[Rfam]
This 75-nucleotide RNA sequence from Desulfosalsimonas propionicica belongs to the Rfam family "c-di-GMP-I-GGC riboswitch aptamer".
RNA sequence: UAUAAUAAAGCCAAACCAUAGGCAACUAUGGGACGGAAAGCCACGGGUCUCACGAAGAUAGCCGGGUUGCCAAUA
Numbered sequence: 001u002a003u004a005a006u007a008a009a010g011c012c013a014a015a016c017c018a019u020a021g022g023c024a025a026c027u028a029u030g031g032g033a034c035g036g037a038a039a040g041c042c043a044c045g046g047g048u049c050u051c052a053c054g055a056a057g058a059u060a061g062c063c064g065g066g067u068u069g070c071c072a073a074u075a
Stems, first nucleotide, its partner, number of pairs: 001075001003072001011036002016031006034061001039068004044064003047059003